[Rfam]
This 130-nucleotide RNA sequence from bacterium HR29 belongs to the Rfam family "FMN riboswitch aptamer (RFN element)". The family's consensus secondary structure is taken from published work.
RNA sequence: AAGGGUUCUCGGGGCGAGGUGGAAGUCCUCACCGGCGGUGAAAGCCCGCGAACCCGGGGCGGAAGCGCCUCGGGCCGACCUGGUGGAAUUCCAGGGCCGACGGUGACAGUCCGGAUGGGAGAGAACCCCG
Dot-bracket structure: ..((((((((......(((.......))).[[((((((.....[[))))...((..................))....(((((.......)))))]])).(((.....]]))).......))))))))..